[Rfam]
RNA sequence: AAAGGCAGAGGACGGAACAGGCAGCCGUCGCUCCUGACUUAAAUCAGGUCUUGUUAAGAGAUGUGGGAAUGUCACCCCACCUACUUUC
Numbered sequence: 001a002a003a004g005g006c007a008g009a010g011g012a013c014g015g016a017a018c019a020g021g022c023a024g025c026c027g028u029c030g031c032u033c034c035u036g037a038c039u040u041a042a043a044u045c046a047g048g049u050c051u052u053g054u055u056a057a058g059a060g061a062u063g064u065g066g067g068a069a070u071g072u073c074a075c076c077c078c079a080c081c082u083a084c085u086u087u088c
Stems, first nucleotide, its partner, number of pairs: 002087004007082002011029005020073004031058001033048005063080005
RNA: skipping-rope RNA